[Rfam]
RNA: c-di-GMP-I riboswitch aptamer
Organism: Sporomusa termitida
RNA sequence: GAGAAUAGAUGGCAAACUUAUUCGAAAGAUAAGGACGCAAAGCUAUGGGUCUAAGGACAUGUCUAUGACUGCCAGGUUGCAAUU
Numbered sequence: 001g002a003g004a005a006u007a008g009a010u011g012g013c014a015a016a017c018u019u020a021u022u023c024g025a026a027a028g029a030u031a032a033g034g035a036c037g038c039a040a041a042g043c044u045a046u047g048g049g050u051c052u053a054a055g056g057a058c059a060u061g062u063c064u065a066u067g068a069c070u071g072c073c074a075g076g077u078u079g080c081a082a083u084u
Stems, first nucleotide, its partner, number of pairs: 012038002017033004022029002041078004046074003049069003056063002